[Rfam]
RNA sequence: AUCUUAUCGCGAGCGGCGGAGGGACUGGCCCUUUGAUGCCCAGCAACCAGUAUUCAUAAUCUAAAUUAUGAAUAACAAGGUGCUAAAUCCUGCAGUUUAAUUACUGAGAGAUAAGAG
Numbered sequence: 001a002u003c004u005u006a007u008c009g010c011g012a013g014c015g016g017c018g019g020a021g022g023g024a025c026u027g028g029c030c031c032u033u034u035g036a037u038g039c040c041c042a043g044c045a046a047c048c049a050g051u052a053u054u055c056a057u058a059a060u061c062u063a064a065a066u067u068a069u070g071a072a073u074a075a076c077a078a079g080g081u082g083c084u085a086a087a088u089c090c091u092g093c094a095g096u097u098u099a100a101u102u103a104c105u106g107a108g109a110g111a112u113a114a115g116a117g
Stems, first nucleotide, its partner, number of pairs: 002116007013041001015040003021031003025092001027090002042084004047080002051074008088109001093106004